[Rfam]
RNA: SAM riboswitch aptamer (S box leader)
Organism: Bacillus gobiensis
Nucleotides: 103
Base pairs, nucleotide, nucleotide: 001103002102003101004100005099006098007097008096013042014041015040016039017038021031022030023029025075026074027073028072043067044066045065046064048063049062050059053057071095076092077091078090
Number, partner (000 for none) and nucleotide at each position: 001103u002102u003101c004100u005099u006098a007097u008096c009000c010000a011000g012000a013042g014041a015040g016039a017038c018000u019000g020000a021031g022030g023029g024000a025075c026074a027073g028072g029023c030022c031021c032000a033000a034000u035000g036000a037000a038017g039016u040015c041014u042013c043067g044066g045065c046064a047000a048063c049062g050059g051000g052000u053057u054000u055000a056000u057053g058000a059050c060000a061000c062049c063048g064046u065045g066044c067043c068000a069000a070000u071095u072028c073027c074026u075025g076092c077091a078090a079000a080000u081000g082000c083000u084000u085000c086000u087000g088000c089000a090078u091077u092076g093000g094000a095071a096008g097007a098006u099005g100004a101003g102002a103001a